[Rfam]
RNA sequence: UAACCGGAGAGGAUUACUGAACUUUUUUGUCACUCUCUGACAGAGAACAAUUUGUUCUUUGACAGAGAGUGACAAAACAGUUCAAUAGCUAAAGCGUCCAGUAAC
Number, nucleotide and partner (000 for none) at each position: 001u104002a000003a102004c101005c000006g099007g000008a000009g000010a000011g000012g090013a000014u088015u087016a086017c000018u084019g083020a082021a081022c080023u079024u000025u077026u066027u065028u064029g063030u062031c061032a060033c000034u000035c000036u000037c000038u000039g000040a000041c000042a000043g000044a000045g000046a056047a055048c054049a053050a000051u000052u000053u049054g048055u047056u046057c000058u000059u000060u032061g031062a030063c029064a028065g027066a026067g000068a000069g000070u000071g000072a000073c000074a000075a000076a000077a025078c000079a023080g022081u021082u020083c019084a018085a000086u016087a015088g014089c000090u012091a000092a000093a000094g000095c000096g000097u000098c000099c006100a000101g004102u003103a000104a001105c000

The record is a 105-nucleotide RNA from Plutella xylostella, which matches "mir-8517 microRNA precursor family" in Rfam. Its family is annotated with RISC complex and miRNA-mediated post-transcriptional gene silencing in the Gene Ontology. NCBI's taxonomy places the organism under Eukaryota, Protostomia, Pancrustacea, Amphiesmenoptera, Plutella.